[Rfam]
RNA: Small nucleolar RNA snoR26
Organism: Lactuca sativa
RNA sequence: UUAGCAUCGAUGAUGAUAAUCAGACUGUCAUCUUUGCAAUUUGAUUCAUAGUGAAGAAAACAAUGGGGAAAGUAUUUCUUAGAUGCGU
Numbered sequence: 001u002u003a004g005c006a007u008c009g010a011u012g013a014u015g016a017u018a019a020u021c022a023g024a025c026u027g028u029c030a031u032c033u034u035u036g037c038a039a040u041u042u043g044a045u046u047c048a049u050a051g052u053g054a055a056g057a058a059a060a061c062a063a064u065g066g067g068g069a070a071a072g073u074a075u076u077u078c079u080u081a082g083a084u085g086c087g088u
Stems, first nucleotide, its partner, number of pairs: 004086005